[Rfam]
RNA sequence: UGCUUCUUUCGCGAUGGCGGAGCUUGAGCGCCCACUGAUGCGAUGAUGUCCUUCAUCGACGCACACCGCUCGCUGCUCGGGGUCGAGCCGAUUUGAAGAUUGCUGCCGAUUGCCCCG
Numbered sequence: 001u002g003c004u005u006c007u008u009u010c011g012c013g014a015u016g017g018c019g020g021a022g023c024u025u026g027a028g029c030g031c032c033c034a035c036u037g038a039u040g041c042g043a044u045g046a047u048g049u050c051c052u053u054c055a056u057c058g059a060c061g062c063a064c065a066c067c068g069c070u071c072g073c074u075g076c077u078c079g080g081g082g083u084c085g086a087g088c089c090g091a092u093u094u095g096a097a098g099a100u101u102g103c104u105g106c107c108g109a110u111u112g113c114c115c116c117g
Stems, first nucleotide, its partner, number of pairs: 016032004078117005089112002092109002095106001097104002
The record is a 117-nucleotide sequence from Rhizobium oryziradicis, which matches "ALIL pseudoknot" in Rfam. By type it is a cis-regulatory element. NCBI's taxonomy places the organism under Bacteria, Pseudomonadati, Pseudomonadota, Rhizobiaceae, Rhizobium. Pairs were carried over by alignment from the consensus structure, which is taken from published work. The literature on the family includes a 2008 paper in J Biol Chem by Mazauric et al., "Apical loop-internal loop RNA pseudoknots: a new type of stimulator of -1 translational frameshifting in bacteria".